[Rfam]
Rfam assigns this 149-nucleotide sequence from Bordetella petrii to the family "Group II catalytic intron D1-D4-7". A reference for the family is Bonen and Vogel (2001), "The ins and outs of group II introns", Trends Genet. Its family is annotated with Group II intron splicing in the Gene Ontology. The organism belongs to Bordetella, within Bacteria. Pairs were carried over by alignment from the consensus structure. The family has 244 seed sequences and 1,296 matches in Rfam 15.1.
RNA sequence: CCUGAUAUUCCGCUAUCAGUAGCCUACCGACACAUGCGACUUCGGCAACGAGGUGGUGUGAAGCUGUCGGGACAAUGUAGACCUCCCAUGAGGGAAAGGUCCUUCCGCGAGGGAGGGCCAAAUCUGCCAGCAUCAAGGCGGAUGGGUCG
Numbered sequence: 001c002c003u004g005a006u007a008u009u010c011c012g013c014u015a016u017c018a019g020u021a022g023c024c025u026a027c028c029g030a031c032a033c034a035u036g037c038g039a040c041u042u043c044g045g046c047a048a049c050g051a052g053g054u055g056g057u058g059u060g061a062a063g064c065u066g067u068c069g070g071g072a073c074a075a076u077g078u079a080g081a082c083c084u085c086c087c088a089u090g091a092g093g094g095a096a097a098g099g100u101c102c103u104u105c106c107g108c109g110a111g112g113g114a115g116g117g118c119c120a121a122a123u124c125u126g127c128c129a130g131c132a133u134c135a136a137g138g139c140g141g142a143u144g145g146g147u148c149g
Base pairs, nucleotide, nucleotide: 002019003018004017005016006015007014028069029068030067031066032065033060034059035058036057037056039054040053041052042051043050044049084095085094086093087092098119099118100117101116105112106111123142124141125140126139127138128137
Rfam describes the family as follows. Group II introns are found in rRNA, tRNA and mRNA of organelles in fungi, plants and protists, and also in mRNA in bacteria.